[Rfam]
RNA sequence: AUCUGGGUGAUGAAGAAAAUCAGACGGAUUCCCAUUGAUUUUCCAAAAUUAUUUUAACUACCAGCUAAUUUUGACAGAU
Numbered sequence: 001a002u003c004u005g006g007g008u009g010a011u012g013a014a015g016a017a018a019a020u021c022a023g024a025c026g027g028a029u030u031c032c033c034a035u036u037g038a039u040u041u042u043c044c045a046a047a048a049u050u051a052u053u054u055u056a057a058c059u060a061c062c063a064g065c066u067a068a069u070u071u072u073g074a075c076a077g078a079u
Stems, first nucleotide, its partner, number of pairs: 001079005
A member of the RNA family "Small nucleolar RNA R12" from Zizania palustris, 79 nucleotides long. A search with the family's covariance model found it, with a score of 79 bits. For this family Rfam cites "The high diversity of snoRNAs in plants: identification and comparative study of 120 snoRNA genes from Oryza sativa" (Chen et al., Nucleic Acids Res, 2003). Taxonomically the source falls in Zizania (Eukaryota, Viridiplantae, Petrosaviidae, Oryzoideae). Pairs were carried over by alignment from the consensus structure, which was predicted with PFOLD.